A member of the RNA family "MIR5269 microRNA precursor family" from Lathyrus oleraceus, 80 nucleotides long. The family's consensus secondary structure was predicted with RNAalifold. The organism belongs to Lathyrus, within Eukaryota. The match comes from Rfam's covariance-model search (62 bits).
RNA sequence: UUGGCUGAAACGCACGUGAGUCCCUCAUUUUGAAAAUGGAUCCCACAUAAAGUGGUGGGAUCCACAUGUGUUUCAGCCAA
Numbered sequence: 001u002u003g004g005c006u007g008a009a010a011c012g013c014a015c016g017u018g019a020g021u022c023c024c025u026c027a028u029u030u031u032g033a034a035a036a037u038g039g040a041u042c043c044c045a046c047a048u049a050a051a052g053u054g055g056u057g058g059g060a061u062c063c064a065c066a067u068g069u070g071u072u073u074c075a076g077c078c079a080a
Base pairs, nucleotide, nucleotide: 001080002079003078004077005076006075007074008073009072010071011070012069013068014067016065017064018063023058024057026054027053028052029051030050031049032048
Dot-bracket structure: ((((((((((((((.(((....((.(((((((...............)))))))..))....))).))))))))))))))